[Rfam]
RNA sequence: CGAGCUGGCAGGGCGGUCGCGAGCCGGGGCGACCCGGCCCGAGGAAAGUCCGGACUCCACAGGGCAGGGUGGUUGCUAACGGCAACCCGGGGUGACCCGCGGGAAAGUGCCACAGAAAACAGACCGCCCCCGCUUUCGGGCGGGGGUAAGGGUGAAACGGUGGUGUAAGAGACCACCAGCGUCCCGGGUGACCGGGACGGCUAGGUAAACCCCACCCGGAGCAAGGCCAAGAGGGAGCUCACGAGCUCCUGCGCAGGCGUUCGAGGACGGCCCGUCCGAGCCUGCGGGUAGGCCGCUGGAGCCUGCCGGCGACGGCAGGCCGAGAUGGAUGGCCGCCGCCCCGGGAGCCGAGAGGCGACCGGGGAACAGGAUCCGGCUUACAUGCCAGCUCGUCCG
Numbered sequence: 001c002g003a004g005c006u007g008g009c010a011g012g013g014c015g016g017u018c019g020c021g022a023g024c025c026g027g028g029g030c031g032a033c034c035c036g037g038c039c040c041g042a043g044g045a046a047a048g049u050c051c052g053g054a055c056u057c058c059a060c061a062g063g064g065c066a067g068g069g070u071g072g073u074u075g076c077u078a079a080c081g082g083c084a085a086c087c088c089g090g091g092g093u094g095a096c097c098c099g100c101g102g103g104a105a106a107g108u109g110c111c112a113c114a115g116a117a118a119a120c121a122g123a124c125c126g127c128c129c130c131c132g133c134u135u136u137c138g139g140g141c142g143g144g145g146g147u148a149a150g151g152g153u154g155a156a157a158c159g160g161u162g163g164u165g166u167a168a169g170a171g172a173c174c175a176c177c178a179g180c181g182u183c184c185c186g187g188g189u190g191a192c193c194g195g196g197a198c199g200g201c202u203a204g205g206u207a208a209a210c211c212c213c214a215c216c217c218g219g220a221g222c223a224a225g226g227c228c229a230a231g232a233g234g235g236a237g238c239u240c241a242c243g244a245g246c247u248c249c250u251g252c253g254c255a256g257g258c259g260u261u262c263g264a265g266g267a268c269g270g271c272c273c274g275u276c277c278g279a280g281c282c283u284g285c286g287g288g289u290a291g292g293c294c295g296c297u298g299g300a301g302c303c304u305g306c307c308g309g310c311g312a313c314g315g316c317a318g319g320c321c322g323a324g325a326u327g328g329a330u331g332g333c334c335g336c337c338g339c340c341c342c343g344g345g346a347g348c349c350g351a352g353a354g355g356c357g358a359c360c361g362g363g364g365a366a367c368a369g370g371a372u373c374c375g376g377c378u379u380a381c382a383u384g385c386c387a388g389c390u391c392g393u394c395c396g
Stems, first nucleotide, its partner, number of pairs: 001392010011381001012337007020041002023038006046379003050376005055221004062273004067217005072086005087101001088099004102212002107210002109206003124151002126147009159177006179201001180199008225294004253285006265277004301320008
This 396-nucleotide sequence from Amycolatopsis sp. SID8362 belongs to the Rfam family "Bacterial RNase P class A".
Pairs were carried over by alignment from the consensus structure, which is taken from published work.
From the family's description: Ribonuclease P (RNase P) is a ubiquitous endoribonuclease, found in archaea, bacteria and eukarya as well as chloroplasts and mitochondria.
A search with the family's covariance model found it, with a score of 299 bits.
The organism belongs to Amycolatopsis, within Bacteria.